The family of this 236-nucleotide RNA from Melampsora laricis-populina is "RNase MRP". The family's RNA type in Rfam is ribozyme. A search with the family's covariance model found it, with a score of 86 bits. The literature on the family includes a 1993 paper in FASEB J by Schmitt et al., "Secondary structure of RNase MRP RNA as predicted by phylogenetic comparison".

[Rfam]
RNA sequence: CAAUGAUGCCAAGGACCACUUUUUGUGUUUUACUUUCAGAUAUCUUCCAGAUAUCUUUUUCAUUCUACACAAGGAGAAAGUCUCCGGACAAAUCAAUUGACUGAAAAAGCCAAGAUAUAAAUGUUUUUUUGGCAUUUAUUAGUUGUUCAGUCAAUUGAAUCACUUUGUCAUGAUUCAUAGUUAUGUGGUCACCCUCGAAAGAGAGUAACAGGAUGGAGCUUACUCUGGCUAUUUUU
Numbered sequence: 001c002a003a004u005g006a007u008g009c010c011a012a013g014g015a016c017c018a019c020u021u022u023u024u025g026u027g028u029u030u031u032a033c034u035u036u037c038a039g040a041u042a043u044c045u046u047c048c049a050g051a052u053a054u055c056u057u058u059u060u061c062a063u064u065c066u067a068c069a070c071a072a073g074g075a076g077a078a079a080g081u082c083u084c085c086g087g088a089c090a091a092a093u094c095a096a097u098u099g100a101c102u103g104a105a106a107a108a109g110c111c112a113a114g115a116u117a118u119a120a121a122u123g124u125u126u127u128u129u130u131g132g133c134a135u136u137u138a139u140u141a142g143u144u145g146u147u148c149a150g151u152c153a154a155u156u157g158a159a160u161c162a163c164u165u166u167g168u169c170a171u172g173a174u175u176c177a178u179a180g181u182u183a184u185g186u187g188g189u190c191a192c193c194c195u196c197g198a199a200a201g202a203g204a205g206u207a208a209c210a211g212g213a214u215g216g217a218g219c220u221u222a223c224u225c226u227g228g229c230u231a232u233u234u235u236u
Stems, first nucleotide, its partner, number of pairs: 002236002005233003008229004014190006022074001023072006039055007078221003082218004099111001101109002112127006129162001131160001135158002138155003192205001194203003